[Rfam]
RNA sequence: UGGCGCCCAACGUGGGGCUCGAGCACGGGGGAUCCAGUGAAGGACGCCGUUCGAGUGGCCGGCAGAAAGAAAAGCAAAGGAAAAGAAGAUAAAAGAAAAGAGGGAACGACGUGGGAACCUGCUGCGUCUGCACCCCUCGGGUAAGUGAACGGCGAUUAUGGGUCAAGCAUUGAGCCAAGAUAAGGUGUUCGUUGAAGCACUAAAAAAGGCUAUAAAGGCACGAGGAGUAAAGGUGAAAAUUAAGCAUUUGUGUCAGUAUUUUGAUUAUAUUAAAGAAGUUUGUCCUU
Numbered sequence: 001u002g003g004c005g006c007c008c009a010a011c012g013u014g015g016g017g018c019u020c021g022a023g024c025a026c027g028g029g030g031g032a033u034c035c036a037g038u039g040a041a042g043g044a045c046g047c048c049g050u051u052c053g054a055g056u057g058g059c060c061g062g063c064a065g066a067a068a069g070a071a072a073a074g075c076a077a078a079g080g081a082a083a084a085g086a087a088g089a090u091a092a093a094a095g096a097a098a099a100g101a102g103g104g105a106a107c108g109a110c111g112u113g114g115g116a117a118c119c120u121g122c123u124g125c126g127u128c129u130g131c132a133c134c135c136c137u138c139g140g141g142u143a144a145g146u147g148a149a150c151g152g153c154g155a156u157u158a159u160g161g162g163u164c165a166a167g168c169a170u171u172g173a174g175c176c177a178a179g180a181u182a183a184g185g186u187g188u189u190c191g192u193u194g195a196a197g198c199a200c201u202a203a204a205a206a207a208g209g210c211u212a213u214a215a216a217g218g219c220a221c222g223a224g225g226a227g228u229a230a231a232g233g234u235g236a237a238a239a240u241u242a243a244g245c246a247u248u249u250g251u252g253u254c255a256g257u258a259u260u261u262u263g264a265u266u267a268u269a270u271u272a273a274a275g276a277a278g279u280u281u282g283u284c285c286u287u
Base pairs, nucleotide, nucleotide: 006031007030008029012026013025014024036051037050038049039048100138101137102135103134107130110126111125112124113123114122146165147164148163150162153160154159171214172213174210175209176208221263222262223261224260225259227257228256231249232248233247234246235245272287273286275284276283

The record is a 287-nucleotide sequence from Molossus molossus, which matches "Mason-Pfizer monkey virus packaging signal" in Rfam. This family represents a group of sequences that are related to the Mason-Pfizer monkey virus (MPMV) packaging signal. The family has 9 seed sequences and 2,921 matches in Rfam 15.1. NCBI's taxonomy places the organism under Eukaryota, Eumetazoa, Chordata, Euteleostomi, Molossus. A search with the family's covariance model found it, with a score of 121 bits. Rfam classes the family as a cis-regulatory element.